[Rfam]
RNA sequence: UAGAUCCUACUGCUUAAUCUCACGGAAGUGAGAACGGGGGACCCAACACUUGGGGCGAAUCGUUUUGUAAAAAACGUAGAGGACUCUUCGACUCGAGCCCGACAGCUAACCUCGUCAGCAAACGAAGAGGAAUU
Numbered sequence: 001u002a003g004a005u006c007c008u009a010c011u012g013c014u015u016a017a018u019c020u021c022a023c024g025g026a027a028g029u030g031a032g033a034a035c036g037g038g039g040g041a042c043c044c045a046a047c048a049c050u051u052g053g054g055g056c057g058a059a060u061c062g063u064u065u066u067g068u069a070a071a072a073a074a075c076g077u078a079g080a081g082g083a084c085u086c087u088u089c090g091a092c093u094c095g096a097g098c099c100c101g102a103c104a105g106c107u108a109a110c111c112u113c114g115u116c117a118g119c120a121a122a123c124g125a126a127g128a129g130g131a132a133u134u
Stems, first nucleotide, its partner, number of pairs: 011120004018033006034115006044052002053100003061076004079094003